[Rfam]
Nucleotides: 079
Stems, first nucleotide, its partner, number of pairs: 004074017022056007
Number, partner (000 for none) and nucleotide at each position: 001000g002000c003000u004074g005073c006072c007071a008070c009069u010068c011067g012066u013065a014064c015063c016062c017061g018060c019059u020058g021000c022056c023055a024054g025053u026052g027051c028050c029000c030000a031000g032000c033000g034000c035000a036000g037000g038000u039000c040000c041000c042000a043000a044000u045000c046000a047000c048000u049000u050028g051027g052026c053025a054024c055023u056022g057000u058020c059019a060018g061017u062016g063015g064014g065013u066012g067011u068010g069009a070008g071007u072006g073005g074004u075000g076000g077000c078000u079000g
Background: Shown here is a 79-nucleotide RNA sequence from Pipistrellus kuhlii, a member of the family "mir-9198 microRNA precursor family". Pairs were carried over by alignment from the consensus structure, which was predicted with RNAalifold. The source organism's lineage runs through Eukaryota, Eumetazoa, Teleostomi, Tetrapoda and Pipistrellus. A search with the family's covariance model found it, with a score of 92 bits.